[Rfam]
RNA: mir-425 microRNA precursor family
RNA sequence: AACCUGCCCUGGAAUGACACGAUCACUCCCGUUGAGCAGGAAGCAAGGACGCCAUCGGGAAUAUCGUGUCUGUCCAAAGCUCUCU
Numbered sequence: 001a002a003c004c005u006g007c008c009c010u011g012g013a014a015u016g017a018c019a020c021g022a023u024c025a026c027u028c029c030c031g032u033u034g035a036g037c038a039g040g041a042a043g044c045a046a047g048g049a050c051g052c053c054a055u056c057g058g059g060a061a062u063a064u065c066g067u068g069u070c071u072g073u074c075c076a077a078a079g080c081u082c083u084c085u
Base pairs, nucleotide, nucleotide: 006080007079010076011075012074016070017069018068019067020066021065022064023063027060028059029058030057031056033054034053036052037051